[Rfam]
RNA: bZIP non canonical Hac1/Xbp1 intron
RNA sequence: GGGACCGGGUCUUCUGAGUCCGCAGCACUCAGGCUACGUGUGCCUCCGCAGCAGGUGCAGGCCCAGCAGUCCC
Numbered sequence: 001g002g003g004a005c006c007g008g009g010u011c012u013u014c015u016g017a018g019u020c021c022g023c024a025g026c027a028c029u030c031a032g033g034c035u036a037c038g039u040g041u042g043c044c045u046c047c048g049c050a051g052c053a054g055g056u057g058c059a060g061g062c063c064c065a066g067c068a069g070u071c072c073c
Stems, first nucleotide, its partner, number of pairs: 001073005007064005014032006041057005